[Rfam]
RNA sequence: UUCUUAUCGAGAGUGGCAGAGGGACUGGCCCUAUGACGCCCAGCAACCGGUUUUAACUUACACGGUGCUAAUUCCAGCAGAGCAUUAAGCUCUGAUAGAUAAGAA
Numbered sequence: 001u002u003c004u005u006a007u008c009g010a011g012a013g014u015g016g017c018a019g020a021g022g023g024a025c026u027g028g029c030c031c032u033a034u035g036a037c038g039c040c041c042a043g044c045a046a047c048c049g050g051u052u053u054u055a056a057c058u059u060a061c062a063c064g065g066u067g068c069u070a071a072u073u074c075c076a077g078c079a080g081a082g083c084a085u086u087a088a089g090c091u092c093u094g095a096u097a098g099a100u101a102a103g104a105a
Base pairs, nucleotide, nucleotide: 001105002104003103004102005101006100007099008098013041015040016039017038021031022030023029025077026076027075028074042069043068044067045066047065048064049061073097078094079093080092081091082090083089